[Rfam]
RNA sequence: GGUGGUGAGCACGGGAGUCCGGGUGGCCGGACUGAGAGGGGGAGCGCCCCGACCGUCGAACCUGAUCCGGGUCAUACCGGCGCAGGGAGCGUGCAGUGAGCGGAU
Numbered sequence: 001g002g003u004g005g006u007g008a009g010c011a012c013g014g015g016a017g018u019c020c021g022g023g024u025g026g027c028c029g030g031a032c033u034g035a036g037a038g039g040g041g042g043a044g045c046g047c048c049c050c051g052a053c054c055g056u057c058g059a060a061c062c063u064g065a066u067c068c069g070g071g072u073c074a075u076a077c078c079g080g081c082g083c084a085g086g087g088a089g090c091g092u093g094c095a096g097u098g099a100g101c102g103g104a105u
Base pairs, nucleotide, nucleotide: 006093007092009090010089011056012055013054014053017032018031019030020029021028039049040048041047061086062085063084064083067080068079069078070077
Dot-bracket structure: .....((.((((((..(((((......)))))......(((.....)))...))))....((((..((((......))))..))))..)).))............
The family of this 105-nucleotide sequence from Saccharopolyspora montiporae is "TPP riboswitch aptamer (THI element)". The base pairs follow the family's consensus structure, which is taken from published work. The match comes from Rfam's covariance-model search (59 bits). The organism belongs to Saccharopolyspora, within Bacteria.